[Rfam]
RNA sequence: CUUUCAACCCAUCCCAACUCGGAAUGGUUGUUGAAAC
Numbered sequence: 001c002u003u004u005c006a007a008c009c010c011a012u013c014c015c016a017a018c019u020c021g022g023a024a025u026g027g028u029u030g031u032u033g034a035a036a037c
Stems, first nucleotide, its partner, number of pairs: 005033004009027002014022002
Dot-bracket structure: ....((((((...((.....))...))..))))....
Rfam assigns this 37-nucleotide RNA from Aphanothece hegewaldii to the family "CRISPR RNA direct repeat element". Pairs were carried over by alignment from the consensus structure, which was predicted with WAR. The match comes from Rfam's covariance-model search (39 bits).